About this RNA: The record is a 92-nucleotide RNA sequence from Meyerozyma sp. JA9, which matches "tRNA" in Rfam. Pairs were carried over by alignment from the consensus structure, which is taken from published work. The organism belongs to Meyerozyma, within Eukaryota. Rfam describes the family as follows. Transfer RNA (tRNA) molecules are approximately 80 nucleotides in length. Their secondary structure includes four short double-helical elements and three loops (D, anti-codon, and T loops).
RNA sequence: GUUACAGUGGCCGAGUGGUUAAGGCGACGCCCUGCUAUUAGCAGCCUAGGCGUUGGGUUUUACCUGCGCAGGUUCGAAUCCUGUCUGUGACG
Numbered sequence: 001g002u003u004a005c006a007g008u009g010g011c012c013g014a015g016u017g018g019u020u021a022a023g024g025c026g027a028c029g030c031c032c033u034g035c036u037a038u039u040a041g042c043a044g045c046c047u048a049g050g051c052g053u054u055g056g057g058u059u060u061u062a063c064c065u066g067c068g069c070a071g072g073u074u075c076g077a078a079u080c081c082u083g084u085c086u087g088u089g090a091c092g
Stems, first nucleotide, its partner, number of pairs: 001091007010025003027053005068084005